RNA sequence: GGGGUCGACCGGAAUUGACAGGAUGGAGAUAAGUAAGUAAGCAUGCAGCGCGUUGGGUGAAUUAGCGCUAUAAUCUGAACGCUCAAACUUUCAAAUGGCGAAAACAACUACGCCUUAGCUGCCUAAUUUAGAAUUAGCAUAGCUUUUGUCCCGCCGGUUUUCCGUUCAUCGGAUCGGUAUAUGGGGCAUCGAAAGAUGAAACUGGCCAGCUUAGCGGUGUGAUAAGCAGGUAAGAUAAAGCACCUAAGGAAGAAGGUAUAGGUGAGCUACUGACCUUCCCCUUCCUAACAAUUUAACAGAGCUAAGCAUGUAGAAAGCUUACCUUAUACCAUGUUUGGACGAGGGUUCGAAUCCCUCCGGCUCCACAA
Numbered sequence: 001g002g003g004g005u006c007g008a009c010c011g012g013a014a015u016u017g018a019c020a021g022g023a024u025g026g027a028g029a030u031a032a033g034u035a036a037g038u039a040a041g042c043a044u045g046c047a048g049c050g051c052g053u054u055g056g057g058u059g060a061a062u063u064a065g066c067g068c069u070a071u072a073a074u075c076u077g078a079a080c081g082c083u084c085a086a087a088c089u090u091u092c093a094a095a096u097g098g099c100g101a102a103a104a105c106a107a108c109u110a111c112g113c114c115u116u117a118g119c120u121g122c123c124u125a126a127u128u129u130a131g132a133a134u135u136a137g138c139a140u141a142g143c144u145u146u147u148g149u150c151c152c153g154c155c156g157g158u159u160u161u162c163c164g165u166u167c168a169u170c171g172g173a174u175c176g177g178u179a180u181a182u183g184g185g186g187c188a189u190c191g192a193a194a195g196a197u198g199a200a201a202c203u204g205g206c207c208a209g210c211u212u213a214g215c216g217g218u219g220u221g222a223u224a225a226g227c228a229g230g231u232a233a234g235a236u237a238a239a240g241c242a243c244c245u246a247a248g249g250a251a252g253a254a255g256g257u258a259u260a261g262g263u264g265a266g267c268u269a270c271u272g273a274c275c276u277u278c279c280c281c282u283u284c285c286u287a288a289c290a291a292u293u294u295a296a297c298a299g300a301g302c303u304a305a306g307c308a309u310g311u312a313g314a315a316a317g318c319u320u321a322c323c324u325u326a327u328a329c330c331a332u333g334u335u336u337g338g339a340c341g342a343g344g345g346u347u348c349g350a351a352u353c354c355c356u357c358c359g360g361c362u363c364c365a366c367a368a
Base pairs, nucleotide, nucleotide: 001364002363003362004361005360006359007358019337020336021335022334023332024331025330026329030326031325032324033323034321035320036319037318038317042310043309044308045307046306047069048068049067050066051065054085055084056083057082058081059080114142115141118138119137120136121135147188148187149186150185151184152183153178154177155176156175159173160172161171165199166198169195205231206230207229209227210226211225212224213223216245217244248285249284250283251282252281255278256277261275262274263273266302267301268300271295272294341357342356343355344354345353